[Rfam]
RNA sequence: UGCUUAUCAAGAAAGGUGGAGGGAUAUGGCCCGACGAUACCUUAGCAACCUUCCUUCGGGAAAGGUGCUACUUCCAUCCGCUGUAAUGGCGGAGAGAUAAUGC
Numbered sequence: 001u002g003c004u005u006a007u008c009a010a011g012a013a014a015g016g017u018g019g020a021g022g023g024a025u026a027u028g029g030c031c032c033g034a035c036g037a038u039a040c041c042u043u044a045g046c047a048a049c050c051u052u053c054c055u056u057c058g059g060g061a062a063a064g065g066u067g068c069u070a071c072u073u074c075c076a077u078c079c080g081c082u083g084u085a086a087u088g089g090c091g092g093a094g095a096g097a098u099a100a101u102g103c
Stems, first nucleotide, its partner, number of pairs: 002103002004100005013043005021032003026077004044069004049065002051061004073095001078092006
The family of this 103-nucleotide RNA from Chitinophaga costaii is "SAM riboswitch aptamer (S box leader)". A search with the family's covariance model found it, with a score of 80 bits.